[Rfam]
The record is a 121-nucleotide RNA from Histophilus somni, which matches "Aggregatibacter sRNA 54" in Rfam. Pairs were carried over by alignment from the consensus structure, which was predicted with RNAfold. A reference for the family is Oogai et al. (2017), "Small RNA repertoires and their intraspecies variation in Aggregatibacter actinomycetemcomitans", DNA Res. Validated by RT-PCR, expression up-regulated during growth. It is one of the family's seed sequences.
RNA sequence: GCGUAACAUUCCGCACGAUUUAAUAACAAGAGGACAUACACUUUGGACAGUCAUAGUCGAUACCUAUUAUCUUUUUUCUAAAUCUCGUCUUGUCUUUCUAGCACUUAUCGGCGGGAUUACG
Numbered sequence: 001g002c003g004u005a006a007c008a009u010u011c012c013g014c015a016c017g018a019u020u021u022a023a024u025a026a027c028a029a030g031a032g033g034a035c036a037u038a039c040a041c042u043u044u045g046g047a048c049a050g051u052c053a054u055a056g057u058c059g060a061u062a063c064c065u066a067u068u069a070u071c072u073u074u075u076u077u078c079u080a081a082a083u084c085u086c087g088u089c090u091u092g093u094c095u096u097u098c099u100a101g102c103a104c105u106u107a108u109c110g111g112c113g114g115g116a117u118u119a120c121g
Stems, first nucleotide, its partner, number of pairs: 001014003005010001026079001028077001030074005043066001045064002050061003080118001082117008